Shown here is a 140-nucleotide RNA from Paenibacillus crassostreae, a member of the family "Group II catalytic intron D1-D4-4".
From the family's description: Group II introns are found in rRNA, tRNA and mRNA of organelles in fungi, plants and protists, and also in mRNA in bacteria.
On this family, see Bonen and Vogel, Trends Genet 2001: "The ins and outs of group II introns".
Rfam links the family to the GO term Group II intron splicing.
[Rfam]
RNA sequence: UAGCCGGUGCAAGUCCGGUCGAGGUAAGAACCAAGUCACCUCGUAGCUGACAGGCAACUGGUGGAGAGAUCCUAAGGUUGAAGCCCUGUGACAAAGUAACUCCCUAUGGAGUGCGAGCAAAACAGCAGACCCUAACAUAA
Numbered sequence: 001u002a003g004c005c006g007g008u009g010c011a012a013g014u015c016c017g018g019u020c021g022a023g024g025u026a027a028g029a030a031c032c033a034a035g036u037c038a039c040c041u042c043g044u045a046g047c048u049g050a051c052a053g054g055c056a057a058c059u060g061g062u063g064g065a066g067a068g069a070u071c072c073u074a075a076g077g078u079u080g081a082a083g084c085c086c087u088g089u090g091a092c093a094a095a096g097u098a099a100c101u102c103c104c105u106a107u108g109g110a111g112u113g114c115g116a117g118c119a120a121a122a123c124a125g126c127a128g129a130c131c132c133u134a135a136c137a138u139a140a
Stems, first nucleotide, its partner, number of pairs: 020043005050089005055080005064071002096114002099112004117133001